Shown here is a 72-nucleotide RNA from Trypanosoma brucei, a member of the family "tRNA".
The sequence is in the family's curated seed alignment.
Lineage of the source: Eukaryota > Euglenozoa > Trypanosomatida > Trypanosoma > Trypanozoon.
RNA sequence: GGGCGUGUAGCUCAGUGGUAGAGCGCCCUGUUUUGCAUACGGAGGCCUAGGGUUCAAACCCCUACUCGUCCA
Numbered sequence: 001g002g003g004c005g006u007g008u009a010g011c012u013c014a015g016u017g018g019u020a021g022a023g024c025g026c027c028c029u030g031u032u033u034u035g036c037a038u039a040c041g042g043a044g045g046c047c048u049a050g051g052g053u054u055c056a057a058a059c060c061c062c063u064a065c066u067c068g069u070c071c072a
Base pairs, nucleotide, nucleotide: 001071002070003069004068005067007065010024011023012022013021026042027041029039030038048064049063050062051061052060